[Rfam]
RNA sequence: CAUUUUUUUAACAUAUUAGGAAGUCAAAUUGGUAGUGAAGACAGAAGCAAGAAGUCGAAAGCCAUCAUUGCCUAUAACCAAAACCCAUAAACCCAUGCCAUGCUUCUGUUUUCACUGCCAAUUCGAUUUCCUGAUAUGUUAAAAGAAAU
Numbered sequence: 001c002a003u004u005u006u007u008u009u010a011a012c013a014u015a016u017u018a019g020g021a022a023g024u025c026a027a028a029u030u031g032g033u034a035g036u037g038a039a040g041a042c043a044g045a046a047g048c049a050a051g052a053a054g055u056c057g058a059a060a061g062c063c064a065u066c067a068u069u070g071c072c073u074a075u076a077a078c079c080a081a082a083a084c085c086c087a088u089a090a091a092c093c094c095a096u097g098c099c100a101u102g103c104u105u106c107u108g109u110u111u112u113c114a115c116u117g118c119c120a121a122u123u124c125g126a127u128u129u130c131c132u133g134a135u136a137u138g139u140u141a142a143a144a145g146a147a148a149u
Stems, first nucleotide, its partner, number of pairs: 004146015020130006027123005033117014048102002051099001057094001
RNA: MIR8643 microRNA precursor family
Organism: Gossypium aridum